A member of the RNA family "c-di-GMP-I riboswitch aptamer" from Pullulanibacillus pueri, 86 nucleotides long.
From the family's description: GEMM was predicted in a large-scale screen for bacterial structured RNA regulatory elements.
[Rfam]
RNA sequence: CUUUUAUAAAGGCAAACUCGCUUGAAAAACGAGGACGCAAAGUCACAGGUCUAAGGUGAUUUAACUAAGACGGCUGGAUUCCAAAA
Numbered sequence: 001c002u003u004u005u006a007u008a009a010a011g012g013c014a015a016a017c018u019c020g021c022u023u024g025a026a027a028a029a030c031g032a033g034g035a036c037g038c039a040a041a042g043u044c045a046c047a048g049g050u051c052u053a054a055g056g057u058g059a060u061u062u063a064a065c066u067a068a069g070a071c072g073g074c075u076g077g078a079u080u081c082c083a084a085a086a
Base pairs, nucleotide, nucleotide: 012038013037017033018032019031020030022029023028041080042079043078044077046076047075048074049071050070051069056065057064